[Rfam]
RNA: ffh sRNA
RNA sequence: GAGGCAGGGGGGUCAACACCCGACAGCGCGUCGCGCCCUCGGGUGCUUUGGUG
Numbered sequence: 001g002a003g004g005c006a007g008g009g010g011g012g013u014c015a016a017c018a019c020c021c022g023a024c025a026g027c028g029c030g031u032c033g034c035g036c037c038c039u040c041g042g043g044u045g046c047u048u049u050g051g052u053g
Stems, first nucleotide, its partner, number of pairs: 017045007026036004